The record is a 142-nucleotide RNA from Dendrobium catenatum, which matches "small nucleolar RNA snoR135" in Rfam. A reference for the family is Chen and Wu (2009), "Mining small RNA sequencing data: a new approach to identify small nucleolar RNAs in Arabidopsis", Nucleic Acids Res. Gene Ontology terms of the family: nucleolus and RNA processing. The match comes from Rfam's covariance-model search (103 bits). The base pairs follow the family's consensus structure, which was predicted with RNAalifold.
RNA sequence: AGUGCAGGAUAGUGUGUAUCGGCUCUUGCUCAUAUAAUGCAAUCUUAACCGAAAGUGUUUCCUGCAAAAUUGAUUAUGGUGAAAAUGGGCAGUUGGGUUUCGCUUAUUUGUGAGGAUCUCAACAAUCAUUUUCUUCAUAUUU
Numbered sequence: 001a002g003u004g005c006a007g008g009a010u011a012g013u014g015u016g017u018a019u020c021g022g023c024u025c026u027u028g029c030u031c032a033u034a035u036a037a038u039g040c041a042a043u044c045u046u047a048a049c050c051g052a053a054a055g056u057g058u059u060u061c062c063u064g065c066a067a068a069a070u071u072g073a074u075u076a077u078g079g080u081g082a083a084a085a086u087g088g089g090c091a092g093u094u095g096g097g098u099u100u101c102g103c104u105u106a107u108u109u110g111u112g113a114g115g116a117u118c119u120c121a122a123c124a125a126u127c128a129u130u131u132u133c134u135u136c137a138u139a140u141u142u
Stems, first nucleotide, its partner, number of pairs: 004065005009059001015041005078136002081133008092123004